Shown here is a 138-nucleotide RNA from Methyloceanibacter marginalis, a member of the family "Alphaproteobacterial sRNA BjrC1505". Lineage of the source: Bacteria > Pseudomonadota > Hyphomicrobiales > Hyphomicrobiaceae > Methyloceanibacter. The family's RNA type in Rfam is small RNA. The base pairs follow the family's consensus structure. A reference for the family is Madhugiri et al. (2012), "Small RNAs of the Bradyrhizobium/Rhodopseudomonas lineage and their analysis", RNA Biol. The match comes from Rfam's covariance-model search (73 bits).
[Rfam]
RNA sequence: UUAGUCUUAACUGGUUGUUAGGAGUUGGGCGGUAUUCUUCUCGUUAUCCAGUCCUCUGGAUCUGAGUGGCCUGUUCCACUCUGUUUGACGCCUCCCUGUUAACUUCCUGAGCCGCCAGACUUUGGCGGCUCUUUUUUU
Numbered sequence: 001u002u003a004g005u006c007u008u009a010a011c012u013g014g015u016u017g018u019u020a021g022g023a024g025u026u027g028g029g030c031g032g033u034a035u036u037c038u039u040c041u042c043g044u045u046a047u048c049c050a051g052u053c054c055u056c057u058g059g060a061u062c063u064g065a066g067u068g069g070c071c072u073g074u075u076c077c078a079c080u081c082u083g084u085u086u087g088a089c090g091c092c093u094c095c096c097u098g099u100u101a102a103c104u105u106c107c108u109g110a111g112c113c114g115c116c117a118g119a120c121u122u123u124g125g126c127g128g129c130u131c132u133u134u135u136u137u138u
Stems, first nucleotide, its partner, number of pairs: 001043001003041002005013001014036001019034002047060004064081006087100004109131009